[Rfam]
RNA sequence: UGGCGCCCAACGUGGGGCUGGAUACUGGGGGCAUCUCAUGAGGGAGACGAAGGAAAAAGAAAGGAGUGCACUCAUUCAAUUUCGAGCAGUUCGGAGACACGCCACGGGAGCCUGCCGCAACUGAACCGAAGGUAAGUUGUGCCAUCCGAUCAUGGAGCAAAAAAUGGCUCCCAUCAGAAGGUAACGCCCACAUUUAGGGUGUGUCUUCUGGGUUUAGAUGAUCCAAUCA
Dot-bracket structure: .....(((...(((........)))...)))....((.(.......).)).....................................(.(((.....((.....(((.......)))....))....)).).)......(((..((((....))))))).....(((...))).((((((((.((((((.......))))))))))))))...................

The record is a 229-nucleotide RNA sequence from Nannospalax galili, which matches "Mason-Pfizer monkey virus packaging signal" in Rfam. This family represents a group of sequences that are related to the Mason-Pfizer monkey virus (MPMV) packaging signal. The packaging signal is located in the 5' UTR and is required for specific RNA encapsidation. The family's RNA type in Rfam is cis-regulatory element. A search with the family's covariance model found it, with a score of 60 bits.